[Rfam]
RNA sequence: GGAAUAUAAAAACUCGUCUCUUAACUGUUAACUAAAAAAACUAAGAACCGUCUCUUGAAUAUCUUAUUCAAGAGACGGUUCUUAGUUUUUUUAGUUAAAAGUUAAGAGACGGGUUCUUAUAUUCC
Numbered sequence: 001g002g003a004a005u006a007u008a009a010a011a012a013c014u015c016g017u018c019u020c021u022u023a024a025c026u027g028u029u030a031a032c033u034a035a036a037a038a039a040a041c042u043a044a045g046a047a048c049c050g051u052c053u054c055u056u057g058a059a060u061a062u063c064u065u066a067u068u069c070a071a072g073a074g075a076c077g078g079u080u081c082u083u084a085g086u087u088u089u090u091u092u093a094g095u096u097a098a099a100a101g102u103u104a105a106g107a108g109a110c111g112g113g114u115u116c117u118u119a120u121a122u123u124c125c
Stems, first nucleotide, its partner, number of pairs: 001125009011115016028098012041085007

MIR9563 microRNA precursor family: a 125-nucleotide RNA from Brassica oleracea.
NCBI's taxonomy places the organism under Eukaryota, Mesangiospermae, eudicotyledons, rosids, Brassica oleracea.